RNA sequence: AAGGUGGGACGAUCUGCCGCGCCGGAAACGGUGAGGAAAGUCCGGACAGGGAAGGGCACCUUGCUGCGGAAAUCGCAGACGGGAGUAAUCUUGUUCAAACCGUAACAGAAAACAACCGCCGAAAGGUAAGGGUGAAAACGCGGGGUAAGAGCCCACGACGGAUGUCAGCGAUGCCGUCCGGGUACGGAGACAAGGCCUGCAAGACCAAAUAUACUGACAGAUGAGGGCUGCCCGCCCGAUGUCAGGGGGUAGGUUGCGAAGAUAAAUGGCAGAUUCAAAAACAGAAACCGGCUUACGGCCCCGCCUUGUUU
Numbered sequence: 001a002a003g004g005u006g007g008g009a010c011g012a013u014c015u016g017c018c019g020c021g022c023c024g025g026a027a028a029c030g031g032u033g034a035g036g037a038a039a040g041u042c043c044g045g046a047c048a049g050g051g052a053a054g055g056g057c058a059c060c061u062u063g064c065u066g067c068g069g070a071a072a073u074c075g076c077a078g079a080c081g082g083g084a085g086u087a088a089u090c091u092u093g094u095u096c097a098a099a100c101c102g103u104a105a106c107a108g109a110a111a112a113c114a115a116c117c118g119c120c121g122a123a124a125g126g127u128a129a130g131g132g133u134g135a136a137a138a139c140g141c142g143g144g145g146u147a148a149g150a151g152c153c154c155a156c157g158a159c160g161g162a163u164g165u166c167a168g169c170g171a172u173g174c175c176g177u178c179c180g181g182g183u184a185c186g187g188a189g190a191c192a193a194g195g196c197c198u199g200c201a202a203g204a205c206c207a208a209a210u211a212u213a214c215u216g217a218c219a220g221a222u223g224a225g226g227g228c229u230g231c232c233c234g235c236c237c238g239a240u241g242u243c244a245g246g247g248g249g250u251a252g253g254u255u256g257c258g259a260a261g262a263u264a265a266a267u268g269g270c271a272g273a274u275u276c277a278a279a280a281a282c283a284g285a286a287a288c289c290g291g292c293u294u295a296c297g298g299c300c301c302c303g304c305c306u307u308g309u310u311u
Stems, first nucleotide, its partner, number of pairs: 001307008010298001011296001012274007020033005038294003042291004047199004054233004059195005064078005079094001081092004095190002100187005116131002118127003139157002142154003159181001160179005166173002203255004214245005225237004
Rfam assigns this 311-nucleotide RNA from Bacteroidales bacterium WCE2008 to the family "Bacterial RNase P class A". A search with the family's covariance model found it, with a score of 187 bits. By type it is a ribozyme. The base pairs follow the family's consensus structure, which is taken from published work.